[Rfam]
RNA sequence: CAAUUUAAUAAAUGAUUCACUCAUAUAAUACCGAUAAUAUGGAUCGGCUGUUUCUACCAAAUGACCGGAAAUCAUUUGACUAUGGGUGGAGUUAUUAUAUUU
Numbered sequence: 001c002a003a004u005u006u007a008a009u010a011a012a013u014g015a016u017u018c019a020c021u022c023a024u025a026u027a028a029u030a031c032c033g034a035u036a037a038u039a040u041g042g043a044u045c046g047g048c049u050g051u052u053u054c055u056a057c058c059a060a061a062u063g064a065c066c067g068g069a070a071a072u073c074a075u076u077u078g079a080c081u082a083u084g085g086g087u088g089g090a091g092u093u094a095u096u097a098u099a100u101u102u
Stems, first nucleotide, its partner, number of pairs: 018088008031047005058078007
RNA: Purine riboswitch aptamer